[Rfam]
RNA sequence: UUCUCAUCUGUAUAAAACCUUCAUAUAUCCUCGAUAAUAUGGUUCGAGAGUUUCUACCAGAUCACCAUAAAUGAUCUGACUAUGAAGGCAGGUUAAAGUCUU
Numbered sequence: 001u002u003c004u005c006a007u008c009u010g011u012a013u014a015a016a017a018c019c020u021u022c023a024u025a026u027a028u029c030c031u032c033g034a035u036a037a038u039a040u041g042g043u044u045c046g047a048g049a050g051u052u053u054c055u056a057c058c059a060g061a062u063c064a065c066c067a068u069a070a071a072u073g074a075u076c077u078g079a080c081u082a083u084g085a086a087g088g089c090a091g092g093u094u095a096a097a098g099u100c101u102u
Base pairs, nucleotide, nucleotide: 018088019087020086021085022084023083024082025081030048031047032046033045034044058078059077060076061075062074063073064072
RNA: Purine riboswitch aptamer